[Rfam]
Shown here is a 49-nucleotide sequence from [Enterobacter] lignolyticus, a member of the family "Guanidine-II riboswitch aptamer (mini-ykkC)". Rfam describes the family as follows. Simpler in structure and has fewer highly conserved nucleotide positions than the ykkC-yxkD leader. The organism belongs to [Enterobacter] lignolyticus, within Bacteria. The match comes from Rfam's covariance-model search (48 bits).

RNA sequence: CUUACGGGACGACCCGUAAGCGUAUCUUUUAAUAACGGGGACGACCCCA
Numbered sequence: 001c002u003u004a005c006g007g008g009a010c011g012a013c014c015c016g017u018a019a020g021c022g023u024a025u026c027u028u029u030u031a032a033u034a035a036c037g038g039g040g041a042c043g044a045c046c047c048c049a
Stems, first nucleotide, its partner, number of pairs: 001020008037048004